[Rfam]
RNA: Rhodo-rpoB RNA
RNA sequence: GGUUCGGGAGCCUUCCGGUGGGACGGAAGGCAUGAAUGGAACCCUACCGCCGCAUCGCAAUAGGCGCGCGUUCGUGACCCCCGACGAACCAGCGCC
Numbered sequence: 001g002g003u004u005c006g007g008g009a010g011c012c013u014u015c016c017g018g019u020g021g022g023a024c025g026g027a028a029g030g031c032a033u034g035a036a037u038g039g040a041a042c043c044c045u046a047c048c049g050c051c052g053c054a055u056c057g058c059a060a061u062a063g064g065c066g067c068g069c070g071u072u073c074g075u076g077a078c079c080c081c082c083g084a085c086g087a088a089c090c091a092g093c094g095c096c
Base pairs, nucleotide, nucleotide: 001043002042003041004040005039010031011030012029013028014027015026016025017024066095067094068093069092070089071088072087073086074085